Rfam assigns this 133-nucleotide RNA to the family "TPP riboswitch aptamer (THI element)".
It scores 71 bits against the family's covariance model.
[Rfam]
RNA sequence: ACGACGCACCAGGGGUGCCUGUAUCUGCUCGACCACUGGCUCUUUGGCUGGGAUUAGAGCAGGUCAGGCUGAGAUAGUCCCUUUGAACCUGAACAGGUUAAUACCUGCGUAGGGAGUGUGCAUUUCUUUUUCC
Number, nucleotide and partner (000 for none) at each position: 001a000002c000003g000004a000005c000006g121007c120008a119009c118010c000011a082012g081013g080014g079015g000016u076017g069018c068019c067020u066021g065022u000023a000024u000025c000026u000027g000028c000029u000030c000031g000032a000033c000034c000035a000036c000037u000038g000039g000040c000041u000042c000043u000044u000045u000046g000047g000048c000049u000050g000051g000052g000053a000054u000055u000056a000057g000058a000059g000060c000061a000062g000063g000064u000065c021066a020067g019068g018069c017070u000071g000072a000073g000074a000075u000076a016077g000078u000079c014080c013081c012082u011083u000084u000085g000086a000087a000088c113089c112090u111091g110092a000093a000094c107095a106096g105097g104098u000099u000100a000101a000102u000103a000104c097105c096106u095107g094108c000109g000110u091111a090112g089113g088114g000115a000116g000117u000118g009119u008120g007121c006122a000123u000124u000125u000126c000127u000128u000129u000130u000131u000132c000133c000